The record is a 126-nucleotide RNA from Gibbsiella quercinecans, which matches "isrA Hfq binding RNA" in Rfam. The base pairs follow the family's consensus structure, which was predicted with WAR. By type it is a small RNA.

[Rfam]
RNA sequence: ACGGUGACAAUUACCGGGGGCAUCAGUCCCAAAUCCCGCGGCUUCCAGCCAGUCGCCUUUAAGGUGCAGGCUGGGGCUUCGGCUGUAAUAGCGCGUCAUAUCAUUGCGGUCGGCGUGGCGCCGCGU
Numbered sequence: 001a002c003g004g005u006g007a008c009a010a011u012u013a014c015c016g017g018g019g020g021c022a023u024c025a026g027u028c029c030c031a032a033a034u035c036c037c038g039c040g041g042c043u044u045c046c047a048g049c050c051a052g053u054c055g056c057c058u059u060u061a062a063g064g065u066g067c068a069g070g071c072u073g074g075g076g077c078u079u080c081g082g083c084u085g086u087a088a089u090a091g092c093g094c095g096u097c098a099u100a101u102c103a104u105u106g107c108g109g110u111c112g113g114c115g116u117g118g119c120g121c122c123g124c125g126u
Stems, first nucleotide, its partner, number of pairs: 030081001032079002035076003050073004054066004106119002